The record is a 146-nucleotide RNA sequence from Viridibacillus arenosi, which matches "c-di-AMP riboswitch aptamer (ydaO/yuaA leader)" in Rfam. It scores 96 bits against the family's covariance model. On this family, see Barrick et al., Proc Natl Acad Sci U S A 2004: "New RNA motifs suggest an expanded scope for riboswitches in bacterial genetic control". About the family: This family represents a conserved RNA structure found upstream of the ydaO and yuaA genes in Bacillus subtilis and related genes in other bacteria.

RNA sequence: AUUUCUAAAUCGCUGAAGUGAAAUACACGGGGGACCCGUUUAUAUGGAUUGCAAUGUAAUCCUAGGGGUGAAUCCUUUAAAGAAGGUAGGGCUACUCAAGGCCCGAAUCCGACAGCUAACCUCGUAAGCGUUAUAUGAGAAGGAAG
Numbered sequence: 001a002u003u004u005c006u007a008a009a010u011c012g013c014u015g016a017a018g019u020g021a022a023a024u025a026c027a028c029g030g031g032g033g034a035c036c037c038g039u040u041u042a043u044a045u046g047g048a049u050u051g052c053a054a055u056g057u058a059a060u061c062c063u064a065g066g067g068g069u070g071a072a073u074c075c076u077u078u079a080a081a082g083a084a085g086g087u088a089g090g091g092c093u094a095c096u097c098a099a100g101g102c103c104c105g106a107a108u109c110c111g112a113c114a115g116c117u118a119a120c121c122u123c124g125u126a127a128g129c130g131u132u133a134u135a136u137g138a139g140a141a142g143g144a145a146g
Stems, first nucleotide, its partner, number of pairs: 011130004018026003027125006037065001066110003074086004089104004